[Rfam]
RNA sequence: CACCGGCGAUUGAUCACGCCGCAGUCUGGCAGCAGGCAUGUCCCCCGCCGCGCCAGACCGGGCAAAGGCCUACCCCCCUCUCCGGGCCUUUGUCCUUCAAUCGAAACGCCAUGGCUGUCCCCUCCGGCCAUGGCGUUUUUUA
Numbered sequence: 001c002a003c004c005g006g007c008g009a010u011u012g013a014u015c016a017c018g019c020c021g022c023a024g025u026c027u028g029g030c031a032g033c034a035g036g037c038a039u040g041u042c043c044c045c046c047g048c049c050g051c052g053c054c055a056g057a058c059c060g061g062g063c064a065a066a067g068g069c070c071u072a073c074c075c076c077c078c079u080c081u082c083c084g085g086g087c088c089u090u091u092g093u094c095c096u097u098c099a100a101u102c103g104a105a106a107c108g109c110c111a112u113g114g115c116u117g118u119c120c121c122c123u124c125c126g127g128c129c130a131u132g133g134c135g136u137u138u139u140u141u142a
Stems, first nucleotide, its partner, number of pairs: 025057006035049003060095011103138001106136012
RNA: Alphaproteobacterial sRNA ar7
Organism: Neorhizobium alkalisoli